[Rfam]
The record is an 88-nucleotide sequence from Paenibacillus zeisoli, which matches "BsrC" in Rfam. By type it is a small RNA. Rfam 15.1 lists 572 matches to the family in 553 species. The base pairs follow the family's consensus structure, which was predicted with CMfinder. It scores 74 bits against the family's covariance model. About the family: The 301 nucleotide sequence from Kouji Nakamura has been trimmed to a highly conserved ~85 nucleotide long core to form this family.

RNA sequence: UUUUUCUAAAACAACAAAAGCCCUACCUCUCUCUUGUCCUUGCGGCUCCAAUGACCGCGCCAGUGUGAAUCAGAAUACUCCAAAAUUC
Dot-bracket structure: .................................(((..(((((((.(.....).)))))..))..)))....................